The family of this 362-nucleotide RNA from Yasminevirus saudimassiliense is "Group I catalytic intron". For this family Rfam cites "Crystal structure of a group I ribozyme domain: principles of RNA packing" (Cate et al., Science, 1996). About the family: Group I catalytic introns are large self-splicing ribozymes. They catalyse their own excision from mRNA, tRNA and rRNA precursors in a wide range of organisms. The core secondary structure consists of 9 paired regions (P1-P9). These fold to essentially two domains - the P4-P6 domain (formed from the stacking of P5, P4, P6 and P6a helices) and the P3-P9 domain (formed from the P8, P3, P7 and P9 helices). The source organism's lineage runs through Viruses, Varidnaviria, Nucleocytoviricota, Imitervirales and Yasminevirus saudimassiliense.
RNA sequence: CCACUUAUUAAUUAAAAAUUAAUAAAAGACAGUUGCUAGUCAUCAGAAAUGAUGGCGACACCAUCAAAUUGCUGGAACACCCUAAAAGUUUAGAUACCAAGUGCAUCUGGGAAACCAAUGCAUGGCCGUUGAUCACGGGUAUGGUGAAAAUUCUAAAUUUAAUUCUCAAUUUAUUGGGAUGCAAUGGGCAAUCAGCAGCCAAGUGCUAAGUUAGUUAAGAUUUAACAUUUAAAAAUGGCGAAAGCUUUUUUGGAAACGUUAAAUCUUGACUAAUAUGCAUGCAGUUCAACGACUAAACGUUGGUGGGUUCUGUCUCAACGACAGGGCUUAAGAUAUAGUCUACUCCCCAGGGAAACUUGGGG
Numbered sequence: 001c002c003a004c005u006u007a008u009u010a011a012u013u014a015a016a017a018a019u020u021a022a023u024a025a026a027a028g029a030c031a032g033u034u035g036c037u038a039g040u041c042a043u044c045a046g047a048a049a050u051g052a053u054g055g056c057g058a059c060a061c062c063a064u065c066a067a068a069u070u071g072c073u074g075g076a077a078c079a080c081c082c083u084a085a086a087a088g089u090u091u092a093g094a095u096a097c098c099a100a101g102u103g104c105a106u107c108u109g110g111g112a113a114a115c116c117a118a119u120g121c122a123u124g125g126c127c128g129u130u131g132a133u134c135a136c137g138g139g140u141a142u143g144g145u146g147a148a149a150a151u152u153c154u155a156a157a158u159u160u161a162a163u164u165c166u167c168a169a170u171u172u173a174u175u176g177g178g179a180u181g182c183a184a185u186g187g188g189c190a191a192u193c194a195g196c197a198g199c200c201a202a203g204u205g206c207u208a209a210g211u212u213a214g215u216u217a218a219g220a221u222u223u224a225a226c227a228u229u230u231a232a233a234a235a236u237g238g239c240g241a242a243a244g245c246u247u248u249u250u251u252g253g254a255a256a257c258g259u260u261a262a263a264u265c266u267u268g269a270c271u272a273a274u275a276u277g278c279a280u281g282c283a284g285u286u287c288a289a290c291g292a293c294u295a296a297a298c299g300u301u302g303g304u305g306g307g308u309u310c311u312g313u314c315u316c317a318a319c320g321a322c323a324g325g326g327c328u329u330a331a332g333a334u335a336u337a338g339u340c341u342a343c344u345c346c347c348c349a350g351g352g353a354a355a356c357u358u359g360g361g362g
Stems, first nucleotide, its partner, number of pairs: 011020001059305005065299001070197006080188003198285002203280004211273016289341001291340005307327008347360005